[Rfam]
The family of this 58-nucleotide RNA from Quercus lobata is "Plastid-ccsA-ndhD-1 3UTR RNA". Rfam describes the family as follows. Plastid-ccsA-ndhD-1 is a non-coding RNA (ncRNA) recognised in plastids. It was found in the three prime untranslated region (3UTR) of ccsA and ndhD genes, its 3UTR location suggests a role in transcript maturation. A reference for the family is Zandueta-Criado and Bock (2004), "Surprising features of plastid ndhD transcripts: addition of non-encoded nucleotides and polysome association of mRNAs with an unedited start codon", Nucleic Acids Res. The family's consensus secondary structure was predicted with LocARNA.
RNA sequence: AAGCCAUUGAGAACCUUUUGAAUCACUACUUUACUUUUAUUCAAAAGGUUCUUACAAA
Numbered sequence: 001a002a003g004c005c006a007u008u009g010a011g012a013a014c015c016u017u018u019u020g021a022a023u024c025a026c027u028a029c030u031u032u033a034c035u036u037u038u039a040u041u042c043a044a045a046a047g048g049u050u051c052u053u054a055c056a057a058a
Stems, first nucleotide, its partner, number of pairs: 008054016025037001